Rfam assigns this 135-nucleotide RNA sequence from Haplochromis burtoni to the family "Small nucleolar RNA SNORA22". The family has 31 seed sequences and 883 matches in Rfam 15.1. The base pairs follow the family's consensus structure, which was predicted with RNAfold. It is annotated as an H/ACA-box small nucleolar RNA. ACA22 is a member of the H/ACA class of snoRNA that guide the sites of modification of uridines to pseudouridines. NCBI's taxonomy places the organism under Eukaryota, Euteleostomi, Teleostei, Pseudocrenilabrinae, Haplochromis.

[Rfam]
RNA sequence: UUGCACAGCGAACACCCAGGGAUGCUAGUGUGGCUCUCCCUGGUCUCACUGUCUGUGCUACAAUGACUCUGAUCUUAUCCUCUGCAUUAGGAGAGUUUAGUCUCUCCUACAUGUAUUCAGCUGAUCAGAACAAAC
Numbered sequence: 001u002u003g004c005a006c007a008g009c010g011a012a013c014a015c016c017c018a019g020g021g022a023u024g025c026u027a028g029u030g031u032g033g034c035u036c037u038c039c040c041u042g043g044u045c046u047c048a049c050u051g052u053c054u055g056u057g058c059u060a061c062a063a064u065g066a067c068u069c070u071g072a073u074c075u076u077a078u079c080c081u082c083u084g085c086a087u088u089a090g091g092a093g094a095g096u097u098u099a100g101u102c103u104c105u106c107c108u109a110c111a112u113g114u115a116u117u118c119a120g121c122u123g124a125u126c127a128g129a130a131c132a133a134a135c
Stems, first nucleotide, its partner, number of pairs: 003058006010052001016043005022037001024034003060075001062073001064071002082120003085113003089108007